[Rfam]
RNA: mir-160 microRNA precursor family
Organism: Elaeis guineensis
RNA sequence: CUCUGCCUGGCUCCCUGAAUGCCAUCUAAGAUGGUUUGUCAAAAGGGUUGAUUCACUUCCUAGUUGGCAUUCGGGGAGUCAUGCAGAC
Numbered sequence: 001c002u003c004u005g006c007c008u009g010g011c012u013c014c015c016u017g018a019a020u021g022c023c024a025u026c027u028a029a030g031a032u033g034g035u036u037u038g039u040c041a042a043a044a045g046g047g048u049u050g051a052u053u054c055a056c057u058u059c060c061u062a063g064u065u066g067g068c069a070u071u072c073g074g075g076g077a078g079u080c081a082u083g084c085a086g087a088c
Stems, first nucleotide, its partner, number of pairs: 002087005008081007016073009027062002